RNA sequence: AAUCACAUAGGGCACACUAAUCGAAAGAUUAGGCCGCAAAGCUUCGGAGUCUAACGGUCGUACGACCUAUGAUAGUCCGGCUGCAACU
Numbered sequence: 001a002a003u004c005a006c007a008u009a010g011g012g013c014a015c016a017c018u019a020a021u022c023g024a025a026a027g028a029u030u031a032g033g034c035c036g037c038a039a040a041g042c043u044u045c046g047g048a049g050u051c052u053a054a055c056g057g058u059c060g061u062a063c064g065a066c067c068u069a070u071g072a073u074a075g076u077c078c079g080g081c082u083g084c085a086a087c088u
Stems, first nucleotide, its partner, number of pairs: 012037002017032006040082004046078003049073003056067004
Dot-bracket structure: ...........((...((((((....))))))...))..((((..((((((....((((....))))...)))..)))))))......